[Rfam]
RNA: Plant small nucleolar RNA U3
Organism: Triticum aestivum
Nucleotides: 221
Stems, first nucleotide, its partner, number of pairs: 001038002003035001005033003013027006044068003048064005078220005098206011110169004120158006127149005134143003171193004175188001177186003
Number, partner (000 for none) and nucleotide at each position: 001038a002037c003035g004000a005033c006032c007031u008000u009000a010000c011000u012000u013027g014026a015025a016024c017023a018022g019000g020000a021000u022018c023017u024016g025015u026014u027013c028000u029000a030000u031007a032006g033005g034000c035003u036000c037002g038001u039000a040000c041000c042000g043000c044068u045067g046066c047000a048064u049063c050062c051061u052060u053000u054000a055000c056000c057000a058000a059000u060052a061051a062050g063049g064048a065000g066046g067045c068044a069000a070000g071000c072000a073000c074000u075000u076000c077000a078220g079219u080218c081217u082216g083000g084000u085000u086000g087000a088000u089000g090000c091000a092000u093000u094000c095000u096000a097000a098206c099205c100204u101203c102202u103201g104200g105199g106198c107197c108196a109000g110169a111168g112167c113166g114000u115000g116000a117000u118000u119000a120158a121157c122156g123155g124154c125153c126000a127149g128148g129147a130146u131145u132000u133000a134143c135142c136141u137000g138000a139000u140000g141136g142135g143134g144000c145131a146130a147129u148128c149127c150000g151000g152000c153125g154124g155123c156122u157121g158120u159000a160000g161000a162000g163000g164000a165000u166113c167112g168111u169110u170000c171193c172192u173191g174190c175188u176000u177186g178185g179184c180000u181000c182000a183000c184179g185178c186177c187000u188175g189000u190174g191173c192172a193171g194000g195000g196108u197107g198106g199105c200104c201103c202102a203101g204100a205099g206098g207000g208000u209000u210000g211000u212000c213000u214000g215000a216082c217081a218080g219079a220078c221000u